The family of this 321-nucleotide RNA sequence from Digitaria exilis is "Plant signal recognition particle RNA". It is annotated as a non-coding RNA gene. Taxonomically the source falls in Digitaria (Eukaryota, Liliopsida, Poaceae, Panicodae).
[Rfam]
RNA sequence: GCCGAGCAGGUAGCGACUGCUUGUGACCCAAGCGGGGGCAUUAAGGUGGUGCGGAUGCCAAUUGUGGUGCUUGGACCUGGGCUUGUGGCUGCACUCUGUGGCCUGCCCGUUCCAAGUUGCGUAGUGGGCCAUGGGUGCCUUGGUGAAAGUCUCGGUGUCUCUGCACCUAGAGCGGUGGACAAUGCGUUAGGCUGGCCCCACAGAGCAGCGAAUCCCACCCACUUCCAACGGUGGGAGGAUAACGGCGGUGGGAGGAUAACGGGCCGCUGCACCACAGGCCCGCUUAGGCUCAUGCAUCCUCUCUGGCAGACUACAAUAUUU
Numbered sequence: 001g002c003c004g005a006g007c008a009g010g011u012a013g014c015g016a017c018u019g020c021u022u023g024u025g026a027c028c029c030a031a032g033c034g035g036g037g038g039c040a041u042u043a044a045g046g047u048g049g050u051g052c053g054g055a056u057g058c059c060a061a062u063u064g065u066g067g068u069g070c071u072u073g074g075a076c077c078u079g080g081g082c083u084u085g086u087g088g089c090u091g092c093a094c095u096c097u098g099u100g101g102c103c104u105g106c107c108c109g110u111u112c113c114a115a116g117u118u119g120c121g122u123a124g125u126g127g128g129c130c131a132u133g134g135g136u137g138c139c140u141u142g143g144u145g146a147a148a149g150u151c152u153c154g155g156u157g158u159c160u161c162u163g164c165a166c167c168u169a170g171a172g173c174g175g176u177g178g179a180c181a182a183u184g185c186g187u188u189a190g191g192c193u194g195g196c197c198c199c200a201c202a203g204a205g206c207a208g209c210g211a212a213u214c215c216c217a218c219c220c221a222c223u224u225c226c227a228a229c230g231g232u233g234g235g236a237g238g239a240u241a242a243c244g245g246c247g248g249u250g251g252g253a254g255g256a257u258a259a260c261g262g263g264c265c266g267c268u269g270c271a272c273c274a275c276a277g278g279c280c281c282g283c284u285u286a287g288g289c290u291c292a293u294g295c296a297u298c299c300u301c302u303c304u305g306g307c308a309g310a311c312u313a314c315a316a317u318a319u320u321u
Stems, first nucleotide, its partner, number of pairs: 001039003004022006027036003043320002046317002049314003053311001056308005061302001064299001066297001068296003072292003076288002079281009090271004098267008107255002110236005116229004121225001123223003127166001130163002133160007142151003167172001174219005183212001185210003192203003